[Rfam]
RNA: Glycine riboswitch aptamer
RNA sequence: CGAAGCACGGCGGGAGAUCCGGCCUCGCGCCGGAGCCGUAGGAGCAACCCUCCCCGGGAAUCUCUCAGGCCCCAGUACCGCUGUGUCGAG
Numbered sequence: 001c002g003a004a005g006c007a008c009g010g011c012g013g014g015a016g017a018u019c020c021g022g023c024c025u026c027g028c029g030c031c032g033g034a035g036c037c038g039u040a041g042g043a044g045c046a047a048c049c050c051u052c053c054c055c056g057g058g059a060a061u062c063u064c065u066c067a068g069g070c071c072c073c074a075g076u077a078c079c080g081c082u083g084u085g086u087c088g089a090g
Stems, first nucleotide, its partner, number of pairs: 006085008019033004035070003038066001042064003048057002